[Rfam]
RNA: Group II catalytic intron D1-D4-6
RNA sequence: GAAGAGCUCUACGUCGAAGGGGCUAGCGACCCACGGCGGCCCCGAGCCAUGCGCUGGCGUCCGUGAGGGUGUCGGUGAAGCGUUGGUAGGGGUACGUGCAGGCCGGGCUAUUGAGCCUCGAAAUAACGGGAUUGGGGUGCCCACGCUGUCACGCAGGCGGAAGGCAACACUGUCGAGGGCGUUUUCGCGAGCUGUCGGCGGGCCCCGCGGGGUCAGAGAACC
Numbered sequence: 001g002a003a004g005a006g007c008u009c010u011a012c013g014u015c016g017a018a019g020g021g022g023c024u025a026g027c028g029a030c031c032c033a034c035g036g037c038g039g040c041c042c043c044g045a046g047c048c049a050u051g052c053g054c055u056g057g058c059g060u061c062c063g064u065g066a067g068g069g070u071g072u073c074g075g076u077g078a079a080g081c082g083u084u085g086g087u088a089g090g091g092g093u094a095c096g097u098g099c100a101g102g103c104c105g106g107g108c109u110a111u112u113g114a115g116c117c118u119c120g121a122a123a124u125a126a127c128g129g130g131a132u133u134g135g136g137g138u139g140c141c142c143a144c145g146c147u148g149u150c151a152c153g154c155a156g157g158c159g160g161a162a163g164g165c166a167a168c169a170c171u172g173u174c175g176a177g178g179g180c181g182u183u184u185u186c187g188c189g190a191g192c193u194g195u196c197g198g199c200g201g202g203c204c205c206c207g208c209g210g211g212g213u214c215a216g217a218g219a220a221c222c
Stems, first nucleotide, its partner, number of pairs: 012038005020032003024190001026188002040092004046087004050082002052077011112216001113214001115213006133207006139165003144159004170201007178193003